[Rfam]
RNA sequence: UGCAGUCUUGUCAAAUUCAGUGUUUCCUCUUCAAUGGACCGCACUGGCCAAAAUGGCUGCAACAGUAAACAAGUAGACUUCAGGACCUACAUUCACAUAGAAUGAAUACUGGGGACAUACAAGUCUGCUUACAUGC
Numbered sequence: 001u002g003c004a005g006u007c008u009u010g011u012c013a014a015a016u017u018c019a020g021u022g023u024u025u026c027c028u029c030u031u032c033a034a035u036g037g038a039c040c041g042c043a044c045u046g047g048c049c050a051a052a053a054u055g056g057c058u059g060c061a062a063c064a065g066u067a068a069a070c071a072a073g074u075a076g077a078c079u080u081c082a083g084g085a086c087c088u089a090c091a092u093u094c095a096c097a098u099a100g101a102a103u104g105a106a107u108a109c110u111g112g113g114g115a116c117a118u119a120c121a122a123g124u125c126u127g128c129u130u131a132c133a134u135g136c
Base pairs, nucleotide, nucleotide: 002060003059004058005057018046019045020044021043022042023041025038026037027036073128074127075126076125077124078123086113087112088111089110

Rfam assigns this 136-nucleotide RNA from Danio rerio to the family "Small nucleolar RNA SNORA5".
The organism belongs to Danio, within Eukaryota.
Its Rfam clan is "SNORA5 clan".
The family has 6 seed sequences and 2,226 matches in Rfam 15.1.
Rfam classes the family as an H/ACA-box small nucleolar RNA.
The family's consensus secondary structure was predicted with RNAfold.